Description:
A member of the RNA family "KatA 5' UTR thermometer" from Yersinia enterocolitica, 154 nucleotides long. Involved in protection against oxidative stress. By type it is an RNA thermoregulator. The sequence is in the family's curated seed alignment. Gene Ontology terms of the family: regulation of translation and response to temperature stimulus.

RNA sequence: GAGAUCAAAGAAUAAACCGCUGAUGUUGUUUAAGUUAUUAUUUUGCCAAUCGGACUUUUGGCGAAAUCCCAUACUGCAAAACACCCAAUACGCAAUCAAUUCAACAGCCAUACUGGAGAAAAUGAUGAGCAAAAAGAAAGGAUUAACCACCGCA
Numbered sequence: 001g002a003g004a005u006c007a008a009a010g011a012a013u014a015a016a017c018c019g020c021u022g023a024u025g026u027u028g029u030u031u032a033a034g035u036u037a038u039u040a041u042u043u044u045g046c047c048a049a050u051c052g053g054a055c056u057u058u059u060g061g062c063g064a065a066a067u068c069c070c071a072u073a074c075u076g077c078a079a080a081a082c083a084c085c086c087a088a089u090a091c092g093c094a095a096u097c098a099a100u101u102c103a104a105c106a107g108c109c110a111u112a113c114u115g116g117a118g119a120a121a122a123u124g125a126u127g128a129g130c131a132a133a134a135a136g137a138a139a140g141g142a143u144u145a146a147c148c149a150c151c152g153c154a
Stems, first nucleotide, its partner, number of pairs: 010102004021092002024090005029080003040067003044063006107130002109127003114122001140148002